RNA sequence: AUGAGUUCCCGUUCACUUAGUUUCCUCCGCUGCCGCGCCGGCACGAUUGAUGCAAGACAUCAAACGAACCGUCAGGCGCCGCGCGAUGCUCGAAGGCGAGCCGCUUGCUCCGUUGCAACUGGGGCGGCGGCUUUUUUA
Numbered sequence: 001a002u003g004a005g006u007u008c009c010c011g012u013u014c015a016c017u018u019a020g021u022u023u024c025c026u027c028c029g030c031u032g033c034c035g036c037g038c039c040g041g042c043a044c045g046a047u048u049g050a051u052g053c054a055a056g057a058c059a060u061c062a063a064a065c066g067a068a069c070c071g072u073c074a075g076g077c078g079c080c081g082c083g084c085g086a087u088g089c090u091c092g093a094a095g096g097c098g099a100g101c102c103g104c105u106u107g108c109u110c111c112g113u114u115g116c117a118a119c120u121g122g123g124g125c126g127g128c129g130g131c132u133u134u135u136u137u138a
Stems, first nucleotide, its partner, number of pairs: 008037001009035001011033002014029001041084002044081001048078002051075001087098004099132006106126006
Rfam assigns this 138-nucleotide RNA sequence from Trinickia fusca to the family "Burkholderia sRNA 2". The family's consensus secondary structure was predicted with RNAfold. Rfam classes the family as a small RNA.